[Rfam]
RNA sequence: GGCGAUAAACGAUGCGUGGAAUAAGCGUUGUGGACCCGGGGGCAGUGCCCGGCGCCUCCACCAAUACUCCGGCGUGCCGGAGUCGCGGGGGCGAAACAGGCUCGACACGCGUGGUAAAGACCCAUCUUUUGCUCGGCAUGGUUCCGCCGUUAUCGGGCCGUAUCACAAGUGCCAACGAUAACAACGUGGUGCUCGCUGCCGCUGCAUAA
Numbered sequence: 001g002g003c004g005a006u007a008a009a010c011g012a013u014g015c016g017u018g019g020a021a022u023a024a025g026c027g028u029u030g031u032g033g034a035c036c037c038g039g040g041g042g043c044a045g046u047g048c049c050c051g052g053c054g055c056c057u058c059c060a061c062c063a064a065u066a067c068u069c070c071g072g073c074g075u076g077c078c079g080g081a082g083u084c085g086c087g088g089g090g091g092c093g094a095a096a097c098a099g100g101c102u103c104g105a106c107a108c109g110c111g112u113g114g115u116a117a118a119g120a121c122c123c124a125u126c127u128u129u130u131g132c133u134c135g136g137c138a139u140g141g142u143u144c145c146g147c148c149g150u151u152a153u154c155g156g157g158c159c160g161u162a163u164c165a166c167a168a169g170u171g172c173c174a175a176c177g178a179u180a181a182c183a184a185c186g187u188g189g190u191g192c193u194c195g196c197u198g199c200c201g202c203u204g205c206a207u208a209a
Stems, first nucleotide, its partner, number of pairs: 001133005014123001016121002026111003030108003036052005053093007134149004